[Rfam]
RNA sequence: GCGCAGGUUAACUCAGGGUUAACCUUUCUCCUUUAUCAAGGAAAUCGUUCAGUUCGCUGGACGCGAGUGGCUCCUGUCCACUCUGUUUGACGCCUCCCUGUAUUCCACUUCAAGGCCGCCUCCGGGCGGCCUUUUUUUG
Dot-bracket structure: .((..........).(...(((..........))))...)......((((........))))..((((((.......))))))......(((......)))..........(((((((((....)))))))))......
Numbered sequence: 001g002c003g004c005a006g007g008u009u010a011a012c013u014c015a016g017g018g019u020u021a022a023c024c025u026u027u028c029u030c031c032u033u034u035a036u037c038a039a040g041g042a043a044a045u046c047g048u049u050c051a052g053u054u055c056g057c058u059g060g061a062c063g064c065g066a067g068u069g070g071c072u073c074c075u076g077u078c079c080a081c082u083c084u085g086u087u088u089g090a091c092g093c094c095u096c097c098c099u100g101u102a103u104u105c106c107a108c109u110u111c112a113a114g115g116c117c118g119c120c121u122c123c124g125g126g127c128g129g130c131c132u133u134u135u136u137u138u139g
Stems, first nucleotide, its partner, number of pairs: 002040001003014001016036001020035003047062004065083006090101003112133009

Shown here is a 139-nucleotide sequence from Phreatobacter cathodiphilus, a member of the family "Alphaproteobacterial sRNA BjrC1505". The family's RNA type in Rfam is small RNA. The match comes from Rfam's covariance-model search (90 bits).